Neisseria metabolic switch regulator b (RcoF1/NgncR163): a 90-nucleotide RNA from Crenobacter luteus.
The family's consensus secondary structure was predicted with RNAfold.
For this family Rfam cites "The primary transcriptome of Neisseria meningitidis and its interaction with the RNA chaperone Hfq" (Heidrich et al., Nucleic Acids Res, 2017).
Rfam 15.1 lists 65 matches to the family in 50 species.
The family's RNA type in Rfam is small RNA.
Taxonomically the source falls in Crenobacter (Bacteria, Pseudomonadati, Neisseriales, Neisseriaceae).
Rfam's curators write: Sibling sRNA described and independently named in three publications. NgncR163 is N. gonorrhoeae while the others are N. meningitidis RNAs. RcoF1 stands for: RNA regulating colonization factor 1.
RNA sequence: UCGUUGAGAUGCAGCAAUUGCUUCUUGAUAGUUUCUCCUCUAUUUCUCCUUUGUAGACUUGUCGCGGGGCUUUUUGCCCCGCCUUUUUUU
Numbered sequence: 001u002c003g004u005u006g007a008g009a010u011g012c013a014g015c016a017a018u019u020g021c022u023u024c025u026u027g028a029u030a031g032u033u034u035c036u037c038c039u040c041u042a043u044u045u046c047u048c049c050u051u052u053g054u055a056g057a058c059u060u061g062u063c064g065c066g067g068g069g070c071u072u073u074u075u076g077c078c079c080c081g082c083c084u085u086u087u088u089u090u
Base pairs, nucleotide, nucleotide: 003029004028005027006026007025008024009023011021039057040056041055042054043053064082065081066080067079068078069077070076